[Rfam]
Nucleotides: 118
Stems, first nucleotide, its partner, number of pairs: 005019002008016002020058003024053007037043001081105005090098003
Number, partner (000 for none) and nucleotide at each position: 001000c002000g003000c004000a005019u006018c007000c008016u009015u010000g011000u012000c013000u014000g015009g016008g017000a018006g019005a020058g021057c022056a023000u024053u025052a026051u027050a028049c029048u030047c031000a032000a033000u034000g035000a036000u037043c038000g039000u040000c041000u042000a043037g044000u045000g046000a047030g048029a049028g050027u051026a052025u053024a054000g055000u056022u057021g058020c059000u060000g061000a062000a063000a064000c065000c066000a067000a068000g069000a070000u071000u072000a073000u074000u075000a076000g077000u078000a079000u080000c081105g082104c083103a084102u085101c086000g087000c088000c089000c090098u091097c092096c093000u094000c095000u096092g097091g098090g099000u100000a101085g102084g103083u104082g105081c106000a107000a108000u109000u110000u111000u112000u113000g114000g115000a116000a117000g118000c